[Rfam]
RNA sequence: CAAUAUCAUUAGCCUAAGUUUAACAAAAAACACGGGGAAACCAGAAUAAUUGGGGUGAAUCGUAUUUAUAGUAGGUUAUGCCUUUACCGAACCCGUCAGCUAACCCCGUAGGUAACAAGGAGAGGAUAU
Numbered sequence: 001c002a003a004u005a006u007c008a009u010u011a012g013c014c015u016a017a018g019u020u021u022a023a024c025a026a027a028a029a030a031c032a033c034g035g036g037g038a039a040a041c042c043a044g045a046a047u048a049a050u051u052g053g054g055g056u057g058a059a060u061c062g063u064a065u066u067u068a069u070a071g072u073a074g075g076u077u078a079u080g081c082c083u084u085u086a087c088c089g090a091a092c093c094c095g096u097c098a099g100c101u102a103a104c105c106c107c108g109u110a111g112g113u114a115a116c117a118a119g120g121a122g123a124g125g126a127u128a129u
Stems, first nucleotide, its partner, number of pairs: 012113003018031003032109006042052002053094003061071001074088003
RNA: c-di-AMP riboswitch aptamer (ydaO/yuaA leader)